[Rfam]
RNA sequence: UUAUAAGUUUUCUAAGUGUCUAAUGAUGAAUUUCAUAGGGCAGAUUUUGAGGUGAAAAUUUUAAUUCAUCACUGAUACUCCUGUGGAAUCUGAAGACACUUGAAAACUU
Numbered sequence: 001u002u003a004u005a006a007g008u009u010u011u012c013u014a015a016g017u018g019u020c021u022a023a024u025g026a027u028g029a030a031u032u033u034c035a036u037a038g039g040g041c042a043g044a045u046u047u048u049g050a051g052g053u054g055a056a057a058a059u060u061u062u063a064a065u066u067c068a069u070c071a072c073u074g075a076u077a078c079u080c081c082u083g084u085g086g087a088a089u090c091u092g093a094a095g096a097c098a099c100u101u102g103a104a105a106a107c108u109u
Stems, first nucleotide, its partner, number of pairs: 013102009030089011043076001046075002049072001051070006

This 109-nucleotide sequence from Saimiri boliviensis belongs to the Rfam family "Small nucleolar RNA SNORD90".
Rfam classes the family as a C/D-box small nucleolar RNA.
The source organism's lineage runs through Eukaryota, Craniata, Sarcopterygii, Boreoeutheria and Saimiri boliviensis.
The match comes from Rfam's covariance-model search (116 bits).
snoRNA HBII-295 belongs to the family of C/D snoRNAs.